[Rfam]
Notes: The family of this 78-nucleotide sequence from Cyphomyrmex costatus is "mir-190 microRNA precursor family". The base pairs follow the family's consensus structure, which was predicted with RNAalifold. The literature on the family includes a 2006 paper in Nucleic Acids Res by Kloosterman et al., "Cloning and expression of new microRNAs from zebrafish". A search with the family's covariance model found it, with a score of 50 bits.
RNA sequence: CCGUUUUUUUCUUAUGUUUGAUCCUUGGUUUGAAUAAUAAGGAUCCAAACCAAGGAUCAAACAUAAGAAAAAAAACGG
Numbered sequence: 001c002c003g004u005u006u007u008u009u010u011c012u013u014a015u016g017u018u019u020g021a022u023c024c025u026u027g028g029u030u031u032g033a034a035u036a037a038u039a040a041g042g043a044u045c046c047a048a049a050c051c052a053a054g055g056a057u058c059a060a061a062c063a064u065a066a067g068a069a070a071a072a073a074a075a076c077g078g
Stems, first nucleotide, its partner, number of pairs: 005074005011067015027051005
Taxonomically the source falls in Cyphomyrmex (Eukaryota, Opisthokonta, Panarthropoda, Arthropoda). Rfam 15.1 lists 1,667 matches to the family in 854 species.